[Rfam]
RNA sequence: UGCCAUGAUGUUGUAAUUUGCGUCCUACUCUGCACCAUGCGACAGUUGCCUACUGUCAUUAUGCUGGUGUAGGUGGCUGUCGAAAACCUACCUUCUGAGCC
Numbered sequence: 001u002g003c004c005a006u007g008a009u010g011u012u013g014u015a016a017u018u019u020g021c022g023u024c025c026u027a028c029u030c031u032g033c034a035c036c037a038u039g040c041g042a043c044a045g046u047u048g049c050c051u052a053c054u055g056u057c058a059u060u061a062u063g064c065u066g067g068u069g070u071a072g073g074u075g076g077c078u079g080u081c082g083a084a085a086a087c088c089u090a091c092c093u094u095c096u097g098a099g100c101c
Stems, first nucleotide, its partner, number of pairs: 002100002021082002024079001030072005039064002041057005

The record is a 101-nucleotide RNA from Leptobrachium leishanense, which matches "Small nucleolar RNA SNORD16" in Rfam.
Its family is annotated with nucleolus and RNA processing in the Gene Ontology.
The organism belongs to Leptobrachium, within Eukaryota.
The family has 5 seed sequences and 1,321 matches in Rfam 15.1.
Clan: SNORD16 clan.
It is annotated as a C/D-box small nucleolar RNA.